RNA sequence: GGAAUUAUCCCAAUAUACUAAGGUAUCUAUGGGUUCCGACCUCACUUGUGAGUGUCGGUAAAUAUUUUUGAACAGUGGUAUUGGGGAAACCAAUGCUGCAAA
Numbered sequence: 001g002g003a004a005u006u007a008u009c010c011c012a013a014u015a016u017a018c019u020a021a022g023g024u025a026u027c028u029a030u031g032g033g034u035u036c037c038g039a040c041c042u043c044a045c046u047u048g049u050g051a052g053u054g055u056c057g058g059u060a061a062a063u064a065u066u067u068u069u070g071a072a073c074a075g076u077g078g079u080a081u082u083g084g085g086g087a088a089a090c091c092a093a094u095g096c097u098g099c100a101a102a
Base pairs, nucleotide, nucleotide: 007035009032010031013028016025017024018023037057038056039055040054041052042051043050044049078099079098080097082095083094085091086090